TPP riboswitch aptamer (THI element): a 110-nucleotide sequence from Acetobacteraceae bacterium AT-5844.
RNA sequence: ACCCCAUCCGGGGGGAGCCUUCCAAGAGGCUGAGAGGCAGGGAUGGGCCCUGCGACCCCUUGAACCUGAUCCGGGUCAUGCCGGCGAAGGGAUCGGAGGUACGCAUGAAG
Numbered sequence: 001a002c003c004c005c006a007u008c009c010g011g012g013g014g015g016a017g018c019c020u021u022c023c024a025a026g027a028g029g030c031u032g033a034g035a036g037g038c039a040g041g042g043a044u045g046g047g048c049c050c051u052g053c054g055a056c057c058c059c060u061u062g063a064a065c066c067u068g069a070u071c072c073g074g075g076u077c078a079u080g081c082c083g084g085c086g087a088a089g090g091g092a093u094c095g096g097a098g099g100u101a102c103g104c105a106u107g108a109a110g
Stems, first nucleotide, its partner, number of pairs: 007097004011059004017030005037053005065090003071084004